This 166-nucleotide RNA from Phytophthora fragariaefolia belongs to the Rfam family "U12 minor spliceosomal RNA".
RNA sequence: UUGGCUUAAACUCAAUGAGUAAGGAAACUAACGCCCUACCUGACAAGUAGGGCAGCCUAUUGGGUCGAGUGAUCCAUGGGUUUCUAAUAUUUGACGGAGGUGGAAUGGCCGUCAGCUUAGGAACCCGCUACUUUUAGGGUGACUAAGUAGGGGGCCGGUCCCCGCC
Numbered sequence: 001u002u003g004g005c006u007u008a009a010a011c012u013c014a015a016u017g018a019g020u021a022a023g024g025a026a027a028c029u030a031a032c033g034c035c036c037u038a039c040c041u042g043a044c045a046a047g048u049a050g051g052g053c054a055g056c057c058u059a060u061u062g063g064g065u066c067g068a069g070u071g072a073u074c075c076a077u078g079g080g081u082u083u084c085u086a087a088u089a090u091u092u093g094a095c096g097g098a099g100g101u102g103g104a105a106u107g108g109c110c111g112u113c114a115g116c117u118u119a120g121g122a123a124c125c126c127g128c129u130a131c132u133u134u135u136a137g138g139g140u141g142a143c144u145a146a147g148u149a150g151g152g153g154g155c156c157g158g159u160c161c162c163c164g165c166c
Base pairs, nucleotide, nucleotide: 005023006022007021008020033053034052035051036050037049038048039047054082055081056080057079058078059077060076099166100165101164102163103162107160108159109158110157111156113150116147117146118145119144120143123140124139125138126137
Dot-bracket structure: ....((((...........)))).........(((((((.......)))))))(((((((...............)))))))................(((((...(((((.(..(((((..((((..........))))..)))))..).....))))).)))))
The family is grouped with related families in Rfam's "U2 clan". Lineage of the source: Eukaryota > Stramenopiles > Peronosporomycetes > Peronosporales > Phytophthora. Rfam 15.1 lists 2,106 matches to the family in 1,170 species.